Rfam assigns this 123-nucleotide RNA from Sapajus apella to the family "Small nucleolar RNA SNORA26".
The snoRNA HBI-6 belong to the H/ACA family of snoRNAs, guiding the pseudouridylation of position U4522 if the 28S rRNA. HBI-6 is the human orthologue of mouse MBI-6 snoRNA.
For this family Rfam cites "RNomics: an experimental approach that identifies 201 candidates for novel, small, non-messenger RNAs in mouse" (Huttenhofer et al., EMBO J, 2001).
RNA sequence: GUUCUCUUUUAAGGCUGACCCAGUGCUUUAAGAGGCUGACACAGAAGGGUAAAGUUAAGUCUCCACAAAAUCCAGGAAAGAGACUGUGAAACUCCUCUUAGUAUCCUGUCUGAAGUCACAGCU
Numbered sequence: 001g002u003u004c005u006c007u008u009u010u011a012a013g014g015c016u017g018a019c020c021c022a023g024u025g026c027u028u029u030a031a032g033a034g035g036c037u038g039a040c041a042c043a044g045a046a047g048g049g050u051a052a053a054g055u056u057a058a059g060u061c062u063c064c065a066c067a068a069a070a071u072c073c074a075g076g077a078a079a080g081a082g083a084c085u086g087u088g089a090a091a092c093u094c095c096u097c098u099u100a101g102u103a104u105c106c107u108g109u110c111u112g113a114a115g116u117c118a119c120a121g122c123u
Stems, first nucleotide, its partner, number of pairs: 002051001004049007014040001016038002019035001021032001059117001061115002064112002073101001075099002078096001080094003085090001
It scores 104 bits against the family's covariance model. The base pairs follow the family's consensus structure, which was predicted with RNAalifold. Clan: SNORA27 clan.